[Rfam]
Nucleotides: 367
Stems, first nucleotide, its partner, number of pairs: 001363010011352001012324007020034005039350003043347005048207004055259004060203005065079005080094001081092004095198002100196002102192002117137002119133006145163006164187001165185005170179003211281004221272006250264005288307008
Number, partner (000 for none) and nucleotide at each position: 001363c002362a003361a004360g005359a006358a007357g008356g009355u010354u011352g012324g013323g014322c015321a016320g017319u018318c019000g020034c021033g022032a023031g024030a025000u026000u027000u028000u029000u030024u031023c032022u033021c034020g035000a036000g037000g038000a039350a040349a041348g042000u043347c044346c045345g046344g047343g048207c049206a050205c051204u052000a053000u054000a055259g056258a057257g058256c059000a060203g061202a062201a063200u064199g065079c066078c067077a068076g069075c070000u071000a072000a073000c074000g075069g076068c077067u078066g079065g080094g081092c082091g083090g084089u085000g086000a087000a088000a089084g090083c091082c092081g093000a094080c095198g096197g097000a098000a099000a100196g101195u102192g103191c104000a105000g106000c107000a108000g109000a110000g111000a112000g113000u114000a115000g116000a117137c118136c119133g120132c121131c122130a123129a124128u125000u126000u127000g128124a129123u130122u131121g132120g133119u134000a135000a136118g137117g138000g139000u140000g141000a142000a143000a144000g145163g146162g147161u148160g149159c150158g151000g152000u153000a154000a155000g156000a157000g158150c159149g160148c161147a162146c163145c164187g165185c166184g167183c168182a169181a170179c171178g172177g173000g174000u175000a176000a177172c178171c179170g180000u181169u182168u183167g184166u185165g186000g187164c188000a189000a190000g191103g192102u193000a194000a195101a196100c197096c198095c199064c200063a201062u202061u203060c204051a205050g206049u207048g208000c209000a210000a211281g212280a213279c214278c215000a216000a217000a218000u219000a220000g221272g222271g223270a224269a225268a226267c227000g228000c229000g230000u231000u232000c233000a234000a235000g236000c237000u238000u239000u240000g241000c242000u243000u244000g245000g246000g247000c248000a249000a250264g251263g252262u253261g254260c255000g256058g257057c258056u259055c260254g261253u262252a263251c264250c265000u266000g267226g268225u269224u270223u271222c272221c273000g274000g275000g276000u277000a278214g279213g280212u281211u282000g283000c284000u285000u286000g287000a288307g289306g290305g291304a292303a293302g294301u295300a296000g297000u298000g299000a300295u301294g302293c303292u304291u305290c306289u307288c308000c309000u310000a311000g312000a313000u314000g315000a316000a317000u318018g319017a320016u321015u322014g323013u324012c325000a326000c327000c328000a329000g330000c331000a332000a333000u334000g335000g336000u337000a338000c339000a340000g341000a342000a343047c344046c345045c346044g347043g348041c349040u350039u351000a352011u353000a354010g355009a356008u357007c358006u359005u360004c361003u362002u363001g364000c365000a366000u367000u